[Rfam]
RNA sequence: UCGCGUGCUCUGGGGUCGGUGAAAUUCCGAGCCGGCGGUGACUGGAUCAACGUCCAGAAGUCCGCGACCCGAUGGCAGCCAGUCAUCGGUUGACCAGGUGAGAAUCCUGGACCGACGGUUAAAGUCCGGAUGGGAAGACGCACGCAG
Numbered sequence: 001u002c003g004c005g006u007g008c009u010c011u012g013g014g015g016u017c018g019g020u021g022a023a024a025u026u027c028c029g030a031g032c033c034g035g036c037g038g039u040g041a042c043u044g045g046a047u048c049a050a051c052g053u054c055c056a057g058a059a060g061u062c063c064g065c066g067a068c069c070c071g072a073u074g075g076c077a078g079c080c081a082g083u084c085a086u087c088g089g090u091u092g093a094c095c096a097g098g099u100g101a102g103a104a105u106c107c108u109g110g111a112c113c114g115a116c117g118g119u120u121a122a123a124g125u126c127c128g129g130a131u132g133g134g135a136a137g138a139c140g141c142a143c144g145c146a147g
Stems, first nucleotide, its partner, number of pairs: 003145006009138002017029003031125002033114002035065004060112002069089002094110005116128003

A member of the RNA family "FMN riboswitch aptamer (RFN element)" from Nocardioides luteus, 147 nucleotides long. The base pairs follow the family's consensus structure, which is taken from published work. Lineage of the source: Bacteria > Actinomycetota > Actinomycetes > Nocardioidaceae > Nocardioides.